RNA sequence: AAAGUUAAGGGCUUAAUCAUGGCCCCGAACGAAUGCUAUCUGGUUGUUUGACACAUGCAAGUCUACAAUUACUUAUGUAGUUGUGGCGUACGGGCGAGUAUAACUAGGAUGCUACCUUUAGGAGGCUUAAUCAGCCAUAUGCACAGUCCUUCGGCUGUGUAAAGGACCGUGUCCGCCUAUUGAUGCUUUUAGUUCACAGCAGUUAGUUGGUGAGGUAAUGGCUUACCAAGGCAAUGACGUGAAGGUGCAGGAUGAAAGUCUCAACACCCGCAGUGGAGAAUGAAAAGUCCCACAUCCUAAUUACAGGAGCAGCAGUGGAGGAUCAUCGUCAAUGGUCGUAAGACUGAACGUGCAAACCAGAAUCAAUCUGAGCUUAGGUUCAAUUGAUGUAGUAGUGCAGGAUAAUGACUAGUCCUACUAAUAGUCGUGACCAAUCCCGGUGCCAGCAGUUGCGGUUACACCGGUACGGCAAGCAUUGUUCGUUGUGAAUA
Numbered sequence: 001a002a003a004g005u006u007a008a009g010g011g012c013u014u015a016a017u018c019a020u021g022g023c024c025c026c027g028a029a030c031g032a033a034u035g036c037u038a039u040c041u042g043g044u045u046g047u048u049u050g051a052c053a054c055a056u057g058c059a060a061g062u063c064u065a066c067a068a069u070u071a072c073u074u075a076u077g078u079a080g081u082u083g084u085g086g087c088g089u090a091c092g093g094g095c096g097a098g099u100a101u102a103a104c105u106a107g108g109a110u111g112c113u114a115c116c117u118u119u120a121g122g123a124g125g126c127u128u129a130a131u132c133a134g135c136c137a138u139a140u141g142c143a144c145a146g147u148c149c150u151u152c153g154g155c156u157g158u159g160u161a162a163a164g165g166a167c168c169g170u171g172u173c174c175g176c177c178u179a180u181u182g183a184u185g186c187u188u189u190u191a192g193u194u195c196a197c198a199g200c201a202g203u204u205a206g207u208u209g210g211u212g213a214g215g216u217a218a219u220g221g222c223u224u225a226c227c228a229a230g231g232c233a234a235u236g237a238c239g240u241g242a243a244g245g246u247g248c249a250g251g252a253u254g255a256a257a258g259u260c261u262c263a264a265c266a267c268c269c270g271c272a273g274u275g276g277a278g279a280a281u282g283a284a285a286a287g288u289c290c291c292a293c294a295u296c297c298u299a300a301u302u303a304c305a306g307g308a309g310c311a312g313c314a315g316u317g318g319a320g321g322a323u324c325a326u327c328g329u330c331a332a333u334g335g336u337c338g339u340a341a342g343a344c345u346g347a348a349c350g351u352g353c354a355a356a357c358c359a360g361a362a363u364c365a366a367u368c369u370g371a372g373c374u375u376a377g378g379u380u381c382a383a384u385u386g387a388u389g390u391a392g393u394a395g396u397g398c399a400g401g402a403u404a405a406u407g408a409c410u411a412g413u414c415c416u417a418c419u420a421a422u423a424g425u426c427g428u429g430a431c432c433a434a435u436c437c438c439g440g441u442g443c444c445a446g447c448a449g450u451u452g453c454g455g456u457u458a459c460a461c462c463g464g465u466a467c468g469g470c471a472a473g474c475a476u477u478g479u480u481c482g483u484u485g486u487g488a489a490u491a
Stems, first nucleotide, its partner, number of pairs: 009025005027481004032477006039361006045354002047319001052317003056314003061087003066083007094271003102194008111186002116182001119179004124136004142159007164174003195241003202232003207229008244268004250261004273293004278289002295308004325351001327350003333346005364386004370381004390421001391419005400409001424470005437464004446453002
Notes
Rfam assigns this 491-nucleotide part of an RNA to the family "Bacterial small subunit ribosomal RNA". Its Rfam clan is "SSU clan". The literature on the family includes a 2001 paper in Science by Yusupov et al., "Crystal structure of the ribosome at 5.5 A resolution".